[Rfam]
RNA sequence: GGCGGGCAGGGGAUGGCCGCUUUAUCUCUGAGUUGAUGAAGAGGAAAGUCCGGACACCAAAAGGCAGCAUGCCAUGCAAAGAGAAGCGCAUGGGAGUGUAGUACGCAAGUUCUACGCGACGGAGAGUAUCACAGAGAAUAGACAACCAGCCUGUUGGGGGCUUCUUAGGGCCGUACUCAACUCGUCUGGAAAUGGUGAAAAGGCGGGGUAAGAGCCCACCACCCCGAGCGUAAGCAAGGGGGUACGAAAAACCCCAUGCGGUGCAAGACGAAAUAGGAGGAUGGGUCGCCUGCCCGAUGAGGGUCAUUCCCUUAGAAACUCCGGGUAUUAGGUCGCACCUGACAGAGGUCGGGGUUUUGUCCUGCUGGACAAAACAGAGAAAUGGUCAUCGCAUCAGCACCUUGGCUAGGGCUGGGGAGCUGUUGUACAGAAUCCGGCUUACAACUGCCCCUCCUUC
Numbered sequence: 001g002g003c004g005g006g007c008a009g010g011g012g013a014u015g016g017c018c019g020c021u022u023u024a025u026c027u028c029u030g031a032g033u034u035g036a037u038g039a040a041g042a043g044g045a046a047a048g049u050c051c052g053g054a055c056a057c058c059a060a061a062a063g064g065c066a067g068c069a070u071g072c073c074a075u076g077c078a079a080a081g082a083g084a085a086g087c088g089c090a091u092g093g094g095a096g097u098g099u100a101g102u103a104c105g106c107a108a109g110u111u112c113u114a115c116g117c118g119a120c121g122g123a124g125a126g127u128a129u130c131a132c133a134g135a136g137a138a139u140a141g142a143c144a145a146c147c148a149g150c151c152u153g154u155u156g157g158g159g160g161c162u163u164c165u166u167a168g169g170g171c172c173g174u175a176c177u178c179a180a181c182u183c184g185u186c187u188g189g190a191a192a193u194g195g196u197g198a199a200a201a202g203g204c205g206g207g208g209u210a211a212g213a214g215c216c217c218a219c220c221a222c223c224c225c226g227a228g229c230g231u232a233a234g235c236a237a238g239g240g241g242g243u244a245c246g247a248a249a250a251a252c253c254c255c256a257u258g259c260g261g262u263g264c265a266a267g268a269c270g271a272a273a274u275a276g277g278a279g280g281a282u283g284g285g286u287c288g289c290c291u292g293c294c295c296g297a298u299g300a301g302g303g304u305c306a307u308u309c310c311c312u313u314a315g316a317a318a319c320u321c322c323g324g325g326u327a328u329u330a331g332g333u334c335g336c337a338c339c340u341g342a343c344a345g346a347g348g349u350c351g352g353g354g355u356u357u358u359g360u361c362c363u364g365c366u367g368g369a370c371a372a373a374a375c376a377g378a379g380a381a382a383u384g385g386u387c388a389u390c391g392c393a394u395c396a397g398c399a400c401c402u403u404g405g406c407u408a409g410g411g412c413u414g415g416g417g418a419g420c421u422g423u424u425g426u427a428c429a430g431a432a433u434c435c436g437g438c439u440u441a442c443a444a445c446u447g448c449c450c451c452u453c454c455u456u457c
Base pairs, nucleotide, nucleotide: 001453002452004450005449006448007447008446009445011442012390013389014388015387016386017385018384020041021040022039023038024037025036026035046440047439048438050437051436052435053434054433055263056262057261058260062308063307067259068258069257070256071255072093073092074091075090076089094120096117097116098115099114100113101112121254122253126252127251129247130246143194144193146189147188148187149186151184153182202220203219205217206216207215221243222241223240224239225238228235229234267334268333269332277322279320280319282317299313300312301311302310303309
A member of the RNA family "Bacterial RNase P class A" from Candidatus Xiphinematobacter sp. Idaho Grape, 457 nucleotides long. The family's RNA type in Rfam is ribozyme. Rfam links the family to the GO terms dimeric ribonuclease P complex, ribonuclease P activity and tRNA processing. A search with the family's covariance model found it, with a score of 180 bits.